RNA sequence: UAUAAUGUUUGACGCUCCGUCUUAUUUUGAAUUUUUUUGUGAUUAAUAUUUUUUUAUUAGAUGAUAAAACAUAAAUAGUACUUUACGGGUGACUACUUUUUUAAGUUUUUCUAUAAAAUUUUCAAAUAAGAUGAUGUUCAAACGUUGGAUGC
Number, nucleotide and partner (000 for none) at each position: 001u149002a000003u147004a146005a145006u144007g000008u142009u141010u140011g139012a138013c000014g137015c136016u000017c000018c133019g132020u131021c130022u129023u128024a127025u126026u000027u000028u000029g000030a000031a000032u000033u000034u000035u000036u000037u000038u000039g000040u000041g000042a000043u000044u000045a000046a000047u000048a000049u000050u000051u000052u000053u000054u000055u000056a000057u000058u000059a000060g000061a000062u000063g000064a000065u000066a000067a000068a000069a000070c000071a000072u000073a000074a000075a000076u000077a000078g000079u000080a000081c000082u000083u000084u000085a000086c000087g000088g000089g000090u000091g000092a000093c000094u000095a000096c000097u000098u000099u000100u000101u000102u000103a000104a000105g000106u000107u000108u000109u000110u000111c000112u000113a000114u000115a000116a000117a000118a000119u000120u000121u000122u000123c000124a000125a000126a025127u024128a023129a022130g021131a020132u019133g018134a000135u000136g015137u014138u012139c011140a010141a009142a008143c000144g006145u005146u004147g003148g000149a001150u000151g000152c000
A member of the RNA family "MIR812 microRNA precursor family" from Oryza brachyantha, 152 nucleotides long.
Pairs were carried over by alignment from the consensus structure, which was predicted with RNAalifold.
Gene Ontology terms of the family: miRNA-mediated post-transcriptional gene silencing and RISC complex.